About this RNA
This 112-nucleotide sequence from Papaver somniferum belongs to the Rfam family "Small nucleolar RNA Z152/R70/R12/". Taxonomically the source falls in Papaver (Eukaryota, Streptophyta, Streptophytina, Papaveroideae). It is annotated as a C/D-box small nucleolar RNA. The family's consensus secondary structure was predicted with PFOLD. The literature on the family includes a 2001 paper in J Mol Biol by Barneche et al., "Identification of 66 box C/D snoRNAs in Arabidopsis thaliana: extensive gene duplications generated multiple isoforms predicting new ribosomal RNA 2'-O-methylation sites". Gene Ontology terms of the family: RNA processing and nucleolus.

[Rfam]
RNA sequence: GAUGCUAUGAUGAUUUGAAGCACACAGGAGUUUGUAUAGGGCAGUGGGAAAGACCUAAAAAUUCUUUGCCAUGAGCCUUUAACAAAAACGACUUCUCCUUCCACUGAGCUUC
Numbered sequence: 001g002a003u004g005c006u007a008u009g010a011u012g013a014u015u016u017g018a019a020g021c022a023c024a025c026a027g028g029a030g031u032u033u034g035u036a037u038a039g040g041g042c043a044g045u046g047g048g049a050a051a052g053a054c055c056u057a058a059a060a061a062u063u064c065u066u067u068g069c070c071a072u073g074a075g076c077c078u079u080u081a082a083c084a085a086a087a088a089c090g091a092c093u094u095c096u097c098c099u100u101c102c103a104c105u106g107a108g109c110u111u112c
Base pairs, nucleotide, nucleotide: 001112002111004109005108